[Rfam]
This 85-nucleotide RNA from Cytobacillus solani belongs to the Rfam family "c-di-GMP-I riboswitch aptamer".

RNA sequence: UAAAAGCAAUAGCAAAUCAAUUGAAAAAUUGAGACGCAAAACCACAGAUCUAAGGUAGUCAUACUAUGAUGGCUGGGUUGCCGUA
Numbered sequence: 001u002a003a004a005a006g007c008a009a010u011a012g013c014a015a016a017u018c019a020a021u022u023g024a025a026a027a028a029u030u031g032a033g034a035c036g037c038a039a040a041a042c043c044a045c046a047g048a049u050c051u052a053a054g055g056u057a058g059u060c061a062u063a064c065u066a067u068g069a070u071g072g073c074u075g076g077g078u079u080g081c082c083g084u085a
Stems, first nucleotide, its partner, number of pairs: 012037002017032006040079004045075003048070003055064003
Taxonomically the source falls in Cytobacillus (Bacteria, Bacillota, Bacilli, Caryophanales).